A member of the RNA family "Small nucleolar RNA SNORD97" from Poecilia reticulata, 181 nucleotides long. The family's consensus secondary structure was predicted with WAR. It is annotated as a C/D-box small nucleolar RNA. Rfam 15.1 lists 639 matches to the family in 614 species. Gene Ontology terms of the family: RNA processing and nucleolus.
RNA sequence: AUGCCCAGUGAUUAUAGAAAGACGCGUUAUUCUGAGGAACCCAACCUGCUGUCAGUCUGUCCUCUGCUCUCUGCUCCGUCUCCACCUCCUCUCAUCUUCCUCUACCUCCUCAUCCUCUCCUCCACCUCUUCCUCACUUUGGCAGCAGGUCCACUGAUUGCGAUUAUGAGAUAUGAGGGCAU
Numbered sequence: 001a002u003g004c005c006c007a008g009u010g011a012u013u014a015u016a017g018a019a020a021g022a023c024g025c026g027u028u029a030u031u032c033u034g035a036g037g038a039a040c041c042c043a044a045c046c047u048g049c050u051g052u053c054a055g056u057c058u059g060u061c062c063u064c065u066g067c068u069c070u071c072u073g074c075u076c077c078g079u080c081u082c083c084a085c086c087u088c089c090u091c092u093c094a095u096c097u098u099c100c101u102c103u104a105c106c107u108c109c110u111c112a113u114c115c116u117c118u119c120c121u122c123c124a125c126c127u128c129u130u131c132c133u134c135a136c137u138u139u140g141g142c143a144g145c146a147g148g149u150c151c152a153c154u155g156a157u158u159g160c161g162a163u164u165a166u167g168a169g170a171u172a173u174g175a176g177g178g179c180a181u
Base pairs, nucleotide, nucleotide: 001181002180003179004178005177006176035101036100037099038098